Annotation:
The family of this 60-nucleotide RNA from Panagrellus redivivus is "mir-71 microRNA precursor family". The sequence is in the family's curated seed alignment. Its family is annotated with miRNA-mediated post-transcriptional gene silencing and RISC complex in the Gene Ontology.

[Rfam]
RNA sequence: UGAAAGACAUGGGUAGUGAGACGUGUGCUCUGCGAUCGUGUCACUAUUCUGUUUUUCGCC
Numbered sequence: 001u002g003a004a005a006g007a008c009a010u011g012g013g014u015a016g017u018g019a020g021a022c023g024u025g026u027g028c029u030c031u032g033c034g035a036u037c038g039u040g041u042c043a044c045u046a047u048u049c050u051g052u053u054u055u056u057c058g059c060c
Stems, first nucleotide, its partner, number of pairs: 002057008011049003015045005021039003